[Rfam]
RNA sequence: AAGCAUUCCGAGGGGGGCUCCGAGUACGGGAGCUGAGAUUGGGCGCGUCGCCCUGACCCUUGAACCUGAUCCGGUUCGUACCGGCGGAGGGACGGGAAUCUCAACGACG
Numbered sequence: 001a002a003g004c005a006u007u008c009c010g011a012g013g014g015g016g017g018c019u020c021c022g023a024g025u026a027c028g029g030g031a032g033c034u035g036a037g038a039u040u041g042g043g044c045g046c047g048u049c050g051c052c053c054u055g056a057c058c059c060u061u062g063a064a065c066c067u068g069a070u071c072c073g074g075u076u077c078g079u080a081c082c083g084g085c086g087g088a089g090g091g092a093c094g095g096g097a098a099u100c101u102c103a104a105c106g107a108c109g
Stems, first nucleotide, its partner, number of pairs: 006097005011060004016054001017033005041053004065090003071084004
The record is a 109-nucleotide RNA from Methylobacterium sp. Leaf104, which matches "TPP riboswitch aptamer (THI element)" in Rfam. Taxonomically the source falls in Methylobacterium (Bacteria, Pseudomonadati, Pseudomonadota, Hyphomicrobiales). Rfam links the family to the GO term thiamine pyrophosphate binding. A search with the family's covariance model found it, with a score of 70 bits.